This 63-nucleotide sequence from Denticeps clupeoides belongs to the Rfam family "mir-7552 microRNA precursor family". Lineage of the source: Eukaryota > Eumetazoa > Teleostei > Otomorpha > Denticeps.
[Rfam]
RNA sequence: UUACAAUUAAAGGAUAUUUCUGGCAGAUGAACGAGGUACGGAAAUGUCCCUUAAUUGUUCGGU
Numbered sequence: 001u002u003a004c005a006a007u008u009a010a011a012g013g014a015u016a017u018u019u020c021u022g023g024c025a026g027a028u029g030a031a032c033g034a035g036g037u038a039c040g041g042a043a044a045u046g047u048c049c050c051u052u053a054a055u056u057g058u059u060c061g062g063u
Base pairs, nucleotide, nucleotide: 003058004057005056006055007054008053009052010051012049013048014047015046016045017044018043019042020041021040024035